A member of the RNA family "Iron response element I" from Jaculus jaculus, 37 nucleotides long. On this family, see Walden et al., Science 2006: "Structure of dual function iron regulatory protein 1 complexed with ferritin IRE-RNA". Rfam 15.1 lists 6,829 matches to the family in 599 species. Taxonomically the source falls in Jaculus (Eukaryota, Gnathostomata, Sarcopterygii, Dipnotetrapodomorpha).
[Rfam]
RNA sequence: CUGUGUCUUACUUCAACAGUGUGUUUGAAUGGAACAC
Number, nucleotide and partner (000 for none) at each position: 001c000002u036003g035004u034005g000006u033007c032008u031009u000010a030011c000012u029013u028014c027015a026016a025017c023018a000019g000020u000021g000022u000023g017024u000025u016026u015027g014028a013029a012030u010031g008032g007033a006034a004035c003036a002037c000
Rfam links the family to the GO term response to iron ion.
The base pairs follow the family's consensus structure, which is taken from published work.